[Rfam]
The family of this 87-nucleotide RNA from Methylomonas sp. LL1 is "c-di-GMP-I riboswitch aptamer".
RNA sequence: CGCCAACCAAGCCACACCCGUCGCGAGGCGGGGCCGGAAAGCCACGGUUCUUGAAAAUAACAAAAACAAGAAGGCCGGGCCGCCUCC
Numbered sequence: 001c002g003c004c005a006a007c008c009a010a011g012c013c014a015c016a017c018c019c020g021u022c023g024c025g026a027g028g029c030g031g032g033g034c035c036g037g038a039a040a041g042c043c044a045c046g047g048u049u050c051u052u053g054a055a056a057a058u059a060a061c062a063a064a065a066a067c068a069a070g071a072a073g074g075c076c077g078g079g080c081c082g083c084c085u086c087c
Stems, first nucleotide, its partner, number of pairs: 012037002017032006041080003045077003048072003058063001